[Rfam]
RNA sequence: UUCUAAUUGGAUGAUGACUGUGACAUGUCAUGAUCUGAUUAGAUGUGAAUUUCAUGAAAGAUGAAAUUCAUUAUUGUUAUCAUUGGUCAAUCAGAUCAUGACAUGUGACACUGUUAAUCA
Numbered sequence: 001u002u003c004u005a006a007u008u009g010g011a012u013g014a015u016g017a018c019u020g021u022g023a024c025a026u027g028u029c030a031u032g033a034u035c036u037g038a039u040u041a042g043a044u045g046u047g048a049a050u051u052u053c054a055u056g057a058a059a060g061a062u063g064a065a066a067u068u069c070a071u072u073a074u075u076g077u078u079a080u081c082a083u084u085g086g087u088c089a090a091u092c093a094g095a096u097c098a099u100g101a102c103a104u105g106u107g108a109c110a111c112u113g114u115u116a117a118u119c120a
Base pairs, nucleotide, nucleotide: 020109021108023106025104026103029100030099031098033096034095035094036093038091039090040089
This 120-nucleotide RNA sequence from Glycine soja belongs to the Rfam family "MIR1520 microRNA precursor family".
NCBI's taxonomy places the organism under Eukaryota, Gunneridae, Fabaceae, Glycine, Glycine subgen. Soja.
Its Rfam clan is "MIR1520 microRNA precursor clan".